[Rfam]
The family of this 90-nucleotide RNA from Oryza sativa is "Small nucleolar RNA Z266".

RNA sequence: GAUUGGCUGGGAUGAUGAAUCAAUUAGAUGUGUGAACUCACCUUAUGAUCUAAAACUUUUGAGGCAUAAUUACUUUCUGACCUGCCAAUC
Numbered sequence: 001g002a003u004u005g006g007c008u009g010g011g012a013u014g015a016u017g018a019a020u021c022a023a024u025u026a027g028a029u030g031u032g033u034g035a036a037c038u039c040a041c042c043u044u045a046u047g048a049u050c051u052a053a054a055a056c057u058u059u060u061g062a063g064g065c066a067u068a069a070u071u072a073c074u075u076u077c078u079g080a081c082c083u084g085c086c087a088a089u090c
Stems, first nucleotide, its partner, number of pairs: 001090007009082002
It is annotated as a C/D-box small nucleolar RNA.